The record is a 52-nucleotide sequence from Rhodospirillum centenum, which matches "serC leader" in Rfam.
Gene Ontology term of the family: regulation of gene expression.
It scores 59 bits against the family's covariance model.
This family is a putative regulatory RNA structure that is found upstream of the serC-serA operon in some alpha-proteobacteria.
The organism belongs to Rhodospirillum centenum, within Bacteria.

[Rfam]
RNA sequence: CGGCGGGACACGCCCCCCCAACGGGGCGCUCUAUUCUGUAAGGAAUAGUCUA
Numbered sequence: 001c002g003g004c005g006g007g008a009c010a011c012g013c014c015c016c017c018c019c020a021a022c023g024g025g026g027c028g029c030u031c032u033a034u035u036c037u038g039u040a041a042g043g044a045a046u047a048g049u050c051u052a
Stems, first nucleotide, its partner, number of pairs: 011028006032047006